Rfam assigns this 342-nucleotide RNA sequence from Sphingomonas oleivorans to the family "Alphaproteobacteria transfer-messenger RNA". Bacterial tmRNA, also known as 10Sa RNA or SsrA, is named for its dual tRNA and mRNA-like properties. Its role is to liberate the mRNA from a stalled ribosome. To accomplish this part of the tmRNA is used as a reading frame that ends in a translation stop signal.

RNA sequence: CCUCUUCCAUUCCCGGCGGGAGCGCCUAUAUCGAUUCCUGCCGGGUUCGCCCGGCUAUGGCGAUAAAUGAUGUCGUGGAAUAGAUGCAGCGGACCCGGGGGCAGUACCCGGCGGCUCCACCAUGAUCGGCCUUCGGGCCGGUCCUGACGGGGCCGAACCAGGAUCGACGUGUGUUCAAAGACGAUGUUUUCGCCCGGCCUGAAUGCGCCGUAAAACCGUUCGAACCUACAAGUGCCAACGACAACGAGGCGCUCGCUCUUGCCGCGUAACUGAGUCCUCACGGACAAGGUUAUGUAGUCAUUAGCGCGGUUCGGGCCGCACCGGGCAACAGAAGCGGAUUCC
Numbered sequence: 001c002c003u004c005u006u007c008c009a010u011u012c013c014c015g016g017c018g019g020g021a022g023c024g025c026c027u028a029u030a031u032c033g034a035u036u037c038c039u040g041c042c043g044g045g046u047u048c049g050c051c052c053g054g055c056u057a058u059g060g061c062g063a064u065a066a067a068u069g070a071u072g073u074c075g076u077g078g079a080a081u082a083g084a085u086g087c088a089g090c091g092g093a094c095c096c097g098g099g100g101g102c103a104g105u106a107c108c109c110g111g112c113g114g115c116u117c118c119a120c121c122a123u124g125a126u127c128g129g130c131c132u133u134c135g136g137g138c139c140g141g142u143c144c145u146g147a148c149g150g151g152g153c154c155g156a157a158c159c160a161g162g163a164u165c166g167a168c169g170u171g172u173g174u175u176c177a178a179a180g181a182c183g184a185u186g187u188u189u190u191c192g193c194c195c196g197g198c199c200u201g202a203a204u205g206c207g208c209c210g211u212a213a214a215a216c217c218g219u220u221c222g223a224a225c226c227u228a229c230a231a232g233u234g235c236c237a238a239c240g241a242c243a244a245c246g247a248g249g250c251g252c253u254c255g256c257u258c259u260u261g262c263c264g265c266g267u268a269a270c271u272g273a274g275u276c277c278u279c280a281c282g283g284a285c286a287a288g289g290u291u292a293u294g295u296a297g298u299c300a301u302u303a304g305c306g307c308g309g310u311u312c313g314g315g316c317c318g319c320a321c322c323g324g325g326c327a328a329c330a331g332a333a334g335c336g337g338a339u340u341c342c
Stems, first nucleotide, its partner, number of pairs: 040055005059194005070187007085173003089170003095111005112155007195210004200222003307323004313340002316337002